[Rfam]
RNA sequence: GGGAUAUGAGGAGUGGUAAAAAUCUCGCACGAAAUAUGCGAGUGGGGUGUCCGCCCCAGCCUGGUUACGACAACUGGGCACUCUCCCUUGAACCAAUCUGAUCCC
Numbered sequence: 001g002g003g004a005u006a007u008g009a010g011g012a013g014u015g016g017u018a019a020a021a022a023u024c025u026c027g028c029a030c031g032a033a034a035u036a037u038g039c040g041a042g043u044g045g046g047g048u049g050u051c052c053g054c055c056c057c058a059g060c061c062u063g064g065u066u067a068c069g070a071c072a073a074c075u076g077g078g079c080a081c082u083c084u085c086c087c088u089u090g091a092a093c094c095a096a097u098c099u100g101a102u103c104c105c
Base pairs, nucleotide, nucleotide: 001105002104003103004102014095015094016093017092024042025041026040027039028038044084045083046082047081048080049079050078051077062076063075064074065073
A member of the RNA family "Small nucleolar RNA Z279/snoR105/snoR108" from Glycine max, 105 nucleotides long. The family has 20 seed sequences and 906 matches in Rfam 15.1. For this family Rfam cites "Experimental RNomics: identification of 140 candidates for small non-messenger RNAs in the plant Arabidopsis thaliana" (Marker et al., Curr Biol, 2002). Gene Ontology terms of the family: nucleolus and RNA processing. The family is grouped with related families in Rfam's "snoU13 clan".